Source information:
This 186-nucleotide sequence from Geotrypetes seraphini belongs to the Rfam family "MIR807 microRNA precursor family". The source organism's lineage runs through Eukaryota, Bilateria, Sarcopterygii, Gymnophiona and Geotrypetes.
RNA sequence: CAGAGCGCUGUGAGUGCAGGAAAUCACUUGCGGUAUGCUACGACCGCCUCUUCCUGCACUAAGUCGGGCCUUAUCCAAUCAGGAGCCGCUUUGACACACAGCUCCUGAUUGGAUAAGGCCCGACUUAGUGCAGGAAGAGGCGGUCGUAGCAUACCGCAAGUGAUUUCCUGCACUCACAGCGCUCUG
Numbered sequence: 001c002a003g004a005g006c007g008c009u010g011u012g013a014g015u016g017c018a019g020g021a022a023a024u025c026a027c028u029u030g031c032g033g034u035a036u037g038c039u040a041c042g043a044c045c046g047c048c049u050c051u052u053c054c055u056g057c058a059c060u061a062a063g064u065c066g067g068g069c070c071u072u073a074u075c076c077a078a079u080c081a082g083g084a085g086c087c088g089c090u091u092u093g094a095c096a097c098a099c100a101g102c103u104c105c106u107g108a109u110u111g112g113a114u115a116a117g118g119c120c121c122g123a124c125u126u127a128g129u130g131c132a133g134g135a136a137g138a139g140g141c142g143g144u145c146g147u148a149g150c151a152u153a154c155c156g157c158a159a160g161u162g163a164u165u166u167c168c169u170g171c172a173c174u175c176a177c178a179g180c181g182c183u184c185u186g
Stems, first nucleotide, its partner, number of pairs: 001186007009178007017170003021166008030157004035152005041146008051136002054133002057130002063124003069118018
Dot-bracket structure: (((((((.(((((((.(((.((((((((.((((.(((((.((((((((..((.((.((....(((...((((((((((((((((((..............))))))))))))))))))...)))....)).)).))..)))))))).))))).)))).)))))))).))).))))))).)))))))